This 81-nucleotide RNA from Flavobacterium sp. ALD4 belongs to the Rfam family "Flavo-1 RNA". The family's RNA type in Rfam is small RNA. It scores 76 bits against the family's covariance model.
[Rfam]
RNA sequence: UCCUAGCCCGGAUAGAAAUAGAAAUCCUUUUUUAUCCUGAAGUCAGGAUAAAAAAGAUUGUAAUGGAUAGCCGGAAAAAGC
Numbered sequence: 001u002c003c004u005a006g007c008c009c010g011g012a013u014a015g016a017a018a019u020a021g022a023a024a025u026c027c028u029u030u031u032u033u034a035u036c037c038u039g040a041a042g043u044c045a046g047g048a049u050a051a052a053a054a055a056g057a058u059u060g061u062a063a064u065g066g067a068u069a070g071c072c073g074g075a076a077a078a079a080g081c
Stems, first nucleotide, its partner, number of pairs: 009073003013069002018064002023059004029054011